Record summary:
U2 spliceosomal RNA: a 203-nucleotide RNA from Chara braunii. Taxonomically the source falls in Chara (Eukaryota, Viridiplantae, Streptophytina, Characeae). The base pairs follow the family's consensus structure, which is taken from published work. Its family is annotated with mRNA branch site recognition, pre-mRNA branch point binding and U2 snRNP in the Gene Ontology. A search with the family's covariance model found it, with a score of 145 bits. About the family: U2 is a small nuclear RNA (snRNA) component of the spliceosome (involved in pre-mRNA splicing). Complementary binding between U2 snRNA (in an area lying towards the 5' end but 3' to hairpin I) and the branchpoint sequence (BPS) of the intron results the bulging out of an unpaired adenosine, on the BPS, which initiates a nucleophilic attack at the intronic 5' splice site, thus starting the first of two transesterification reactions that mediate splicing. The family's RNA type in Rfam is spliceosomal small nuclear RNA.
RNA sequence: AUACCUUUCUCGGCCUUUUGGCUAAGAUCAAGUGUAGUAUCUGUUGUUGUGAUCAGUUUAAUAUCUGAUCCGUGGUCCAUCGGGCCACUACGAUAUUAAUUAAUUUUUCUGGGCUACGGAGGGGUCAUAUGGGUAGGCUUGCCUGCUCGACCCCUCCAGCGUUGCCUCUGUAUCGCACUGCAGCAGAGUGUGGCGCAGCCCUC
Numbered sequence: 001a002u003a004c005c006u007u008u009c010u011c012g013g014c015c016u017u018u019u020g021g022c023u024a025a026g027a028u029c030a031a032g033u034g035u036a037g038u039a040u041c042u043g044u045u046g047u048u049g050u051g052a053u054c055a056g057u058u059u060a061a062u063a064u065c066u067g068a069u070c071c072g073u074g075g076u077c078c079a080u081c082g083g084g085c086c087a088c089u090a091c092g093a094u095a096u097u098a099a100u101u102a103a104u105u106u107u108u109c110u111g112g113g114c115u116a117c118g119g120a121g122g123g124g125u126c127a128u129a130u131g132g133g134u135a136g137g138c139u140u141g142c143c144u145g146c147u148c149g150a151c152c153c154c155u156c157c158a159g160c161g162u163u164g165c166c167u168c169u170g171u172a173u174c175g176c177a178c179u180g181c182a183g184c185a186g187a188g189u190g191u192g193g194c195g196c197a198g199c200c201c202u203c
Base pairs, nucleotide, nucleotide: 008027009026010025012023013022014021015020051070052069053068054067055066056065072088073087074086075085076084077083078082119156120155121154122153123152124151125150126149134145135144136143137142159196160195161194162193163192164191166188167187168186169185170184171183